[Rfam]
RNA sequence: UCAUGAACUUUGUACUGUGCACAUUACUUAGACGGGUUCUAGAAAAGGAUAUGAG
Numbered sequence: 001u002c003a004u005g006a007a008c009u010u011u012g013u014a015c016u017g018u019g020c021a022c023a024u025u026a027c028u029u030a031g032a033c034g035g036g037u038u039c040u041a042g043a044a045a046a047g048g049a050u051a052u053g054a055g
Base pairs, nucleotide, nucleotide: 019037020036022034024032025031